[Rfam]
RNA sequence: ACACUGGCACGGGCGAAGAGGUUUCCUCUCCGCCCGUGCACGCAUGUUAGGGGCAGAUAAAACAAG
Numbered sequence: 001a002c003a004c005u006g007g008c009a010c011g012g013g014c015g016a017a018g019a020g021g022u023u024u025c026c027u028c029u030c031c032g033c034c035c036g037u038g039c040a041c042g043c044a045u046g047u048u049a050g051g052g053g054c055a056g057a058u059a060a061a062a063c064a065a066g
Stems, first nucleotide, its partner, number of pairs: 007039009017029004

Rfam assigns this 66-nucleotide RNA to the family "tpke11". The match comes from Rfam's covariance-model search (73 bits). Pairs were carried over by alignment from the consensus structure, which was predicted with WAR. In Yersinia located in ICR upstream dnaJ (chaperone)gene. Has temperature responsive RNA structure. A reference for the family is Righetti et al. (2016), "Temperature-responsive in vitro RNA structurome of Yersinia pseudotuberculosis", Proc Natl Acad Sci U S A.